[Rfam]
Nucleotides: 082
Base pairs, nucleotide, nucleotide: 001029002028005024008021009020010019011018012017046051054082055081056080063075064074065073066072067071
Number, partner (000 for none) and nucleotide at each position: 001029c002028g003000c004000c005024u006000c007000a008021u009020g010019c011018c012017u013000g014000a015000a016000a017012g018011g019010g020009c021008g022000a023000c024005g025000g026000u027000g028002u029001g030000a031000g032000c033000c034000g035000g036000a037000g038000c039000g040000a041000g042000a043000a044000g045000u046051c047000a048000g049000c050000a051046g052000c053000g054082g055081u056080c057000a058000u059000a060000g061000u062000a063075g064074c065073u066072g067071c068000g069000c070000u071067g072066c073065a074064g075063c076000g077000a078000a079000g080056g081055a082054c